[Rfam]
Nucleotides: 191
Base pairs, nucleotide, nucleotide: 007023010020011019012018047066048065049064050063051062052061068084069083070082071081072080073079074078112144113143114142118138119137124135125134126133127132147184148183149182150181151180152179154176155175156174157173158172159171
Number, partner (000 for none) and nucleotide at each position: 001000u002000g003000a004000a005000c006000u007023u008000g009000u010020g011019u012018c013000a014000a015000u016000u017000u018012g019011g020010c021000u022000a023007a024000a025000a026000a027000a028000a029000a030000a031000a032000a033000a034000a035000a036000a037000a038000a039000u040000c041000u042000g043000u044000u045000c046000u047066u048065a049064u050063c051062a052061g053000u054000u055000u056000a057000a058000u059000a060000u061052c062051u063050g064049a065048u066047a067000c068084g069083u070082c071081c072080u073079c074078u075000a076000u077000c078074a079073g080072g081071g082070g083069a084068c085000a086000a087000c088000a089000u090000a091000u092000u093000a094000a095000a096000u097000g098000g099000a100000u101000u102000u103000u104000u105000g106000u107000c108000a109000a110000u111000a112144g113143g114142a115000u116000u117000u118138g119137a120000a121000a122000a123000a124135g125134g126133g127132g128000c129000u130000u131000g132127c133126u134125c135124c136000a137119u138118u139000c140000c141000u142114u143113c144112c145000a146000c147184g148183c149182a150181u151180u152179g153000a154176c155175c156174u157173g158172g159171u160000a161000u162000u163000g164000c165000a166000g167000c168000g169000c170000c171159g172158c173157u174156g175155g176154g177000a178000a179152c180151g181150g182149u183148g184147c185000a186000c187000u188000c189000u190000u191000c